[Rfam]
A member of the RNA family "Vault RNA" from Erpetoichthys calabaricus, 94 nucleotides long. Pairs were carried over by alignment from the consensus structure, which is taken from published work. Rfam 15.1 lists 2,873 matches to the family in 431 species. The organism belongs to Erpetoichthys, within Eukaryota. The literature on the family includes a 2009 paper in Mol Biol Evol by Stadler et al., "Evolution of Vault RNAs". By type it is a non-coding RNA gene.
RNA sequence: GCGCCGGUUUAGCUCAGUGGUUACUUCACAUGGUUGCACCUGAGUUGGGGUUCUCGAAUUCCGUCUCCAACCACGGGCGCUGCCCGGCGUUUUA
Numbered sequence: 001g002c003g004c005c006g007g008u009u010u011a012g013c014u015c016a017g018u019g020g021u022u023a024c025u026u027c028a029c030a031u032g033g034u035u036g037c038a039c040c041u042g043a044g045u046u047g048g049g050g051u052u053c054u055c056g057a058a059u060u061c062c063g064u065c066u067c068c069a070a071c072c073a074c075g076g077g078c079g080c081u082g083c084c085c086g087g088c089g090u091u092u093u094a
Stems, first nucleotide, its partner, number of pairs: 002089006012078004017074004025058003
Dot-bracket structure: .((((((....((((.((((....(((............................)))............)))))))).....)))))).....